A member of the RNA family "Purine riboswitch aptamer" from Paenibacillus pectinilyticus, 100 nucleotides long. The match comes from Rfam's covariance-model search (69 bits).
RNA sequence: AUAAUUGCAUAUGACUUCUUUCGUAUAACCUUAAUAAUUGGAUUAAGGGUCUCUACUUAGAAACCGUAAAUUUCUAGCUACGAAAAAUGUGCUGCAGAUG
Numbered sequence: 001a002u003a004a005u006u007g008c009a010u011a012u013g014a015c016u017u018c019u020u021u022c023g024u025a026u027a028a029c030c031u032u033a034a035u036a037a038u039u040g041g042a043u044u045a046a047g048g049g050u051c052u053c054u055a056c057u058u059a060g061a062a063a064c065c066g067u068a069a070a071u072u073u074c075u076a077g078c079u080a081c082g083a084a085a086a087a088u089g090u091g092c093u094g095c096a097g098a099u100g
Stems, first nucleotide, its partner, number of pairs: 019085007029048007057077007

Pairs were carried over by alignment from the consensus structure, which is taken from published work.